RNA sequence: UACCGGCAUUCCAACGCCGGCGCGGGCUACUGAAAAGGCUUGUCCUUCAUUGCCAGGUGUGCGGGCGGGAAAAUUCCCAACCAAUCCACGGCAGCACAGUCUGGUCUGAGUUUUUUGGCUUCGUUGCGCCUCCAUCGCGCAAUUGGGCCGGGCACUCAUA
Numbered sequence: 001u002a003c004c005g006g007c008a009u010u011c012c013a014a015c016g017c018c019g020g021c022g023c024g025g026g027c028u029a030c031u032g033a034a035a036a037g038g039c040u041u042g043u044c045c046u047u048c049a050u051u052g053c054c055a056g057g058u059g060u061g062c063g064g065g066c067g068g069g070a071a072a073a074u075u076c077c078c079a080a081c082c083a084a085u086c087c088a089c090g091g092c093a094g095c096a097c098a099g100u101c102u103g104g105u106c107u108g109a110g111u112u113u114u115u116u117g118g119c120u121u122c123g124u125u126g127c128g129c130c131u132c133c134a135u136c137g138c139g140c141a142a143u144u145g146g147g148c149c150g151g152g153c154a155c156u157c158a159u160a
Base pairs, nucleotide, nucleotide: 001022003020004019005018006017007016037054038053039052061140062139063138106123108121109120110119111118112117
RNA: speF leader
Organism: Afipia sp. GAS231